[Rfam]
Archaeal large subunit ribosomal RNA: a 283-nucleotide part of an RNA from Fervidicoccus fontis. NCBI's taxonomy places the organism under Archaea, Thermoproteati, Thermoproteota, Fervidicoccales, Fervidicoccus fontis. Its family is annotated with structural constituent of ribosome and ribosome in the Gene Ontology.
RNA sequence: GGCCGUCUGAGGGGAAGAUGCCCACAGUACGAGAGGAACUGGGCAUCGCGGCCUCUAGUCUACCGGUUGUCCGGCAGGGCAAUGCCGGGCAGCCACGCCGUUAGGGAUAACCGCUGAAAGCAUCUAAGCGGGAAGCCCGCCCCGAGACGAGACGGCCAUUCCGUGCGGGGAAACUCGCACGGAUGGAGGGCCCCCGUAGAAGACGGGCUUGAUAGGACGGGGGUGUAAGCUCCGAGGGACUUGUUCCCGAGGAGUGAGCCUGCCGUUACUAAAAGCCCGACGC
Numbered sequence: 001g002g003c004c005g006u007c008u009g010a011g012g013g014g015a016a017g018a019u020g021c022c023c024a025c026a027g028u029a030c031g032a033g034a035g036g037a038a039c040u041g042g043g044c045a046u047c048g049c050g051g052c053c054u055c056u057a058g059u060c061u062a063c064c065g066g067u068u069g070u071c072c073g074g075c076a077g078g079g080c081a082a083u084g085c086c087g088g089g090c091a092g093c094c095a096c097g098c099c100g101u102u103a104g105g106g107a108u109a110a111c112c113g114c115u116g117a118a119a120g121c122a123u124c125u126a127a128g129c130g131g132g133a134a135g136c137c138c139g140c141c142c143c144g145a146g147a148c149g150a151g152a153c154g155g156c157c158a159u160u161c162c163g164u165g166c167g168g169g170g171a172a173a174c175u176c177g178c179a180c181g182g183a184u185g186g187a188g189g190g191c192c193c194c195c196g197u198a199g200a201a202g203a204c205g206g207g208c209u210u211g212a213u214a215g216g217a218c219g220g221g222g223g224u225g226u227a228a229g230c231u232c233c234g235a236g237g238g239a240c241u242u243g244u245u246c247c248c249g250a251g252g253a254g255u256g257a258g259c260c261u262g263c264c265g266u267u268a269c270u271a272a273a274a275g276c277c278c279g280a281c282g283c
Stems, first nucleotide, its partner, number of pairs: 001157008011143004017047008048101005056095001058093001063088005068081005104138003111131005188278004193207004213271003216267005221261003226256001229255005236248003